A member of the RNA family "rpsB sRNA" from Azospirillum doebereinerae, 104 nucleotides long. By type it is a small RNA. The family has 4 seed sequences and 245 matches in Rfam 15.1. Pairs were carried over by alignment from the consensus structure, which is taken from published work. NCBI's taxonomy places the organism under Bacteria, Pseudomonadati, Pseudomonadota, Rhodospirillales, Azospirillum.
RNA sequence: CUCACGCGGGCUGGCGGACCCUCGGCUUUACCCCGAUGGCCCGAUCCGGUGUCCACACCUGUGGACAGGCGCCCGCGGCGGAUCAACCGGAAAAAGGGAUUUUU
Numbered sequence: 001c002u003c004a005c006g007c008g009g010g011c012u013g014g015c016g017g018a019c020c021c022u023c024g025g026c027u028u029u030a031c032c033c034c035g036a037u038g039g040c041c042c043g044a045u046c047c048g049g050u051g052u053c054c055a056c057a058c059c060u061g062u063g064g065a066c067a068g069g070c071g072c073c074c075g076c077g078g079c080g081g082a083u084c085a086a087c088c089g090g091a092a093a094a095a096g097g098g099a100u101u102u103u104u
Base pairs, nucleotide, nucleotide: 001080003078005077006076007075008074009073010072011071015043016042023035024034025033052065053064054063055062056061